[Rfam]
Nucleotides: 117
Stems, first nucleotide, its partner, number of pairs: 036101001041096002043093001045091003049087004056081001059078003062072001064070001
Number, partner (000 for none) and nucleotide at each position: 001000c002000u003000u004000u005000u006000u007000a008000u009000a010000u011000u012000u013000g014000a015000a016000g017000c018000a019000c020000a021000a022000u023000g024000a025000g026000g027000a028000a029000u030000a031000a032000u033000a034000a035000a036101a037000c038000a039000a040000a041096u042095a043093u044000u045091u046090g047089g048000u049087g050086g051085u052084g053000g054000a055000g056081u057000a058000a059078c060077u061076u062072a063000c064070g065000a066000a067000a068000a069000a070064c071000a072062u073000c074000g075000u076061g077060a078059g079000c080000a081056a082000a083000g084052c085051a086050u087049c088000a089047u090046u091045g092000u093043a094000g095042u096041a097000a098000a099000a100000c101036u102000a103000u104000a105000u106000a107000a108000a109000a110000g111000g112000c113000u114000u115000g116000u117000c
The record is a 117-nucleotide sequence from Maribacter vaceletii, which matches "Bacteroidete tryptophan peptide leader RNA" in Rfam. Its family is annotated with S-adenosylmethionine metabolic process and regulation of gene expression in the Gene Ontology. Rfam classes the family as a cis-regulatory leader. NCBI's taxonomy places the organism under Bacteria, Pseudomonadati, Flavobacteriales, Flavobacteriaceae, Maribacter. Pairs were carried over by alignment from the consensus structure, which is taken from published work.